RNA: c-di-AMP riboswitch aptamer (ydaO/yuaA leader)
RNA sequence: UGAUAAAAAAUGCCGAAUCAGCACAGCACAAGUGCUAGUACGGGGGACAUAUUUUUCUGGGGUGAAUAUUCGUCUGCUUGGAGCUGCGAAUAAGGGAAAACCUCUUCCCUAACCCGUCAACUAACCUCGGAGGCUUAUAGGAGGAAAAAC
Numbered sequence: 001u002g003a004u005a006a007a008a009a010a011u012g013c014c015g016a017a018u019c020a021g022c023a024c025a026g027c028a029c030a031a032g033u034g035c036u037a038g039u040a041c042g043g044g045g046g047a048c049a050u051a052u053u054u055u056u057c058u059g060g061g062g063u064g065a066a067u068a069u070u071c072g073u074c075u076g077c078u079u080g081g082a083g084c085u086g087c088g089a090a091u092a093a094g095g096g097a098a099a100a101c102c103u104c105u106u107c108c109c110u111a112a113c114c115c116g117u118c119a120a121c122u123a124a125c126c127u128c129g130g131a132g133g134c135u136u137a138u139a140g141g142a143g144g145a146a147a148a149a150c
Stems, first nucleotide, its partner, number of pairs: 012134003019038001041129005050059002060115003068091006094109004